A member of the RNA family "HIF-1 alpha IRES" from Castor canadensis, 288 nucleotides long. The family's consensus secondary structure was predicted with RNAfold.

RNA sequence: CUCGUCCGAGGGGGACGCGAGGACUGUCCUCGCGACGCCGUUGCGGGCAGUGUGUCGGCCAGGCCCUGACAAGCAGCCGUAGGAGACGCUUGAGCAGAACCGGAACCCCUGCAAUUGCGGCCCGCUGCUCCCGCCUCUGGUCUCCGGAGGAGCUUCCCGCCUUGCACUCCCGCCCCUGGACUUGCUCGCCUUUUCUCUCCGCGUGUGGAGGGAACCAGCGCUUAGGCCGGAGCGAGCCUGGGGGCCGCCGGCCGUGAAGGAAGGCAUCGCGGGGACCGAUUCGCCAUG
Numbered sequence: 001c002u003c004g005u006c007c008g009a010g011g012g013g014g015a016c017g018c019g020a021g022g023a024c025u026g027u028c029c030u031c032g033c034g035a036c037g038c039c040g041u042u043g044c045g046g047g048c049a050g051u052g053u054g055u056c057g058g059c060c061a062g063g064c065c066c067u068g069a070c071a072a073g074c075a076g077c078c079g080u081a082g083g084a085g086a087c088g089c090u091u092g093a094g095c096a097g098a099a100c101c102g103g104a105a106c107c108c109c110u111g112c113a114a115u116u117g118c119g120g121c122c123c124g125c126u127g128c129u130c131c132c133g134c135c136u137c138u139g140g141u142c143u144c145c146g147g148a149g150g151a152g153c154u155u156c157c158c159g160c161c162u163u164g165c166a167c168u169c170c171c172g173c174c175c176c177u178g179g180a181c182u183u184g185c186u187c188g189c190c191u192u193u194u195c196u197c198u199c200c201g202c203g204u205g206u207g208g209a210g211g212g213a214a215c216c217a218g219c220g221c222u223u224a225g226g227c228c229g230g231a232g233c234g235a236g237c238c239u240g241g242g243g244g245c246c247g248c249c250g251g252c253c254g255u256g257a258a259g260g261a262a263g264g265c266a267u268c269g270c271g272g273g274g275a276c277c278g279a280u281u282c283g284c285c286a287u288g
Stems, first nucleotide, its partner, number of pairs: 001014003017033006037064003085155002089150001128149004182218003186214001189211001194209003228251001230249001232248003